About this RNA
Group I catalytic intron: a 540-nucleotide RNA sequence from Citrus x clementina. For this family Rfam cites "Crystal structure of a group I ribozyme domain: principles of RNA packing" (Cate et al., Science, 1996).
RNA sequence: CUACGGACUUAAUUGGAUUGAGCCUUAGUAUGGAAACUUACUAAGUGAUAACUUUCAAAUUCAGAGAAACCCAGGAAUUAAAAAUGGGUAAUCCUGAGCCAAAUCCUCUUCUCUUUUCCAAGAACAAACAGGGGUUCAGAAAGCGAAAAAGGGGGAUAGGUGCAGAGACUCAAUGGAAGCUGUUCUAACAAAUGGAGUUGACUGCCCUUUUUGGUAAAGAAAAAAGAAAGUAAAAUGAAUGCUUCUAUCGAAUAUCGAAACUCGAUAAAGGAUGAAGGAUAAGGGUAUAUAGACUAUGGAUACGCAGCGAAAAACUAACUCAAAAAUCACAACCAAAUACGUAUUUCUUUUUAUGAAAAGAAAAAGAAAAGAAUUGUUAUUGUUAUGAAUCGAUUCUAAGUUGAAGAAAGAAUCGAAUAUUCCCGGCUCAAAUCAUUCACUCCACCUCCAUGGUCUGAUCGAUCCUUUCUUUUGACUUUUGAAGAACUGAUUAAUCGGACGAGAAUAAAGAUAGAGUCCCAUUCUACAUGUCAAUAUCAA
Numbered sequence: 001c002u003a004c005g006g007a008c009u010u011a012a013u014u015g016g017a018u019u020g021a022g023c024c025u026u027a028g029u030a031u032g033g034a035a036a037c038u039u040a041c042u043a044a045g046u047g048a049u050a051a052c053u054u055u056c057a058a059a060u061u062c063a064g065a066g067a068a069a070c071c072c073a074g075g076a077a078u079u080a081a082a083a084a085u086g087g088g089u090a091a092u093c094c095u096g097a098g099c100c101a102a103a104u105c106c107u108c109u110u111c112u113c114u115u116u117u118c119c120a121a122g123a124a125c126a127a128a129c130a131g132g133g134g135u136u137c138a139g140a141a142a143g144c145g146a147a148a149a150a151g152g153g154g155g156a157u158a159g160g161u162g163c164a165g166a167g168a169c170u171c172a173a174u175g176g177a178a179g180c181u182g183u184u185c186u187a188a189c190a191a192a193u194g195g196a197g198u199u200g201a202c203u204g205c206c207c208u209u210u211u212u213g214g215u216a217a218a219g220a221a222a223a224a225a226g227a228a229a230g231u232a233a234a235a236u237g238a239a240u241g242c243u244u245c246u247a248u249c250g251a252a253u254a255u256c257g258a259a260a261c262u263c264g265a266u267a268a269a270g271g272a273u274g275a276a277g278g279a280u281a282a283g284g285g286u287a288u289a290u291a292g293a294c295u296a297u298g299g300a301u302a303c304g305c306a307g308c309g310a311a312a313a314a315c316u317a318a319c320u321c322a323a324a325a326a327u328c329a330c331a332a333c334c335a336a337a338u339a340c341g342u343a344u345u346u347c348u349u350u351u352u353a354u355g356a357a358a359a360g361a362a363a364a365a366g367a368a369a370a371g372a373a374u375u376g377u378u379a380u381u382g383u384u385a386u387g388a389a390u391c392g393a394u395u396c397u398a399a400g401u402u403g404a405a406g407a408a409a410g411a412a413u414c415g416a417a418u419a420u421u422c423c424c425g426g427c428u429c430a431a432a433u434c435a436u437u438c439a440c441u442c443c444a445c446c447u448c449c450a451u452g453g454u455c456u457g458a459u460c461g462a463u464c465c466u467u468u469c470u471u472u473u474g475a476c477u478u479u480u481g482a483a484g485a486a487c488u489g490a491u492u493a494a495u496c497g498g499a500c501g502a503g504a505a506u507a508a509a510g511a512u513a514g515a516g517u518c519c520c521a522u523u524c525u526a527c528a529u530g531u532c533a534a535u536a537u538c539a540a
Stems, first nucleotide, its partner, number of pairs: 005024001008022006030038001050181001052179003056175002061097004066092001070088004098161002104155003112148001114146002165519001167518005183505004526537001528535002
Record summary:
It scores 127 bits against the family's covariance model. Gene Ontology term of the family: Group I intron splicing. Lineage of the source: Eukaryota > Magnoliopsida > eudicotyledons > Pentapetalae > Citrus. Rfam describes the family as follows. Group I catalytic introns are large self-splicing ribozymes. They catalyse their own excision from mRNA, tRNA and rRNA precursors in a wide range of organisms.